Small Cajal body specific RNA 21: a 140-nucleotide sequence from Equus caballus. scaRNAs are a specific class of small nuclear RNAs which localise to the Cajal bodies and guide the modification of RNA polymerase II transcribed spliceosomal RNAs U1, U2, U4, U5 and U12. The source organism's lineage runs through Eukaryota, Eumetazoa, Bilateria, Boreoeutheria and Equus. The sequence is in the family's curated seed alignment. It is annotated as a small Cajal body RNA.
[Rfam]
RNA sequence: CGGCUCGAUUUCCUGGGGGGUGGGCUCAGCCUACCCCACCUCCCCUCAGACGAGCCCAGAGCAGAGAGGCUGGGCUUCCUCCCCAACAGGAGAGGCGGUUAAGACAGGAGCCUCGCCUGGGCUGUCCUUGCCUCACAUUU
Numbered sequence: 001c002g003g004c005u006c007g008a009u010u011u012c013c014u015g016g017g018g019g020g021u022g023g024g025c026u027c028a029g030c031c032u033a034c035c036c037c038a039c040c041u042c043c044c045c046u047c048a049g050a051c052g053a054g055c056c057c058a059g060a061g062c063a064g065a066g067a068g069g070c071u072g073g074g075c076u077u078c079c080u081c082c083c084c085a086a087c088a089g090g091a092g093a094g095g096c097g098g099u100u101a102a103g104a105c106a107g108g109a110g111c112c113u114c115g116c117c118u119g120g121g122c123u124g125u126c127c128u129u130g131c132c133u134c135a136c137a138u139u140u
Base pairs, nucleotide, nucleotide: 002056003055004054005053006052007051015044016043017042018041019040020039021038022037023036024035066134067133068132069131070130072128073127074126078121079120080119088113089112090111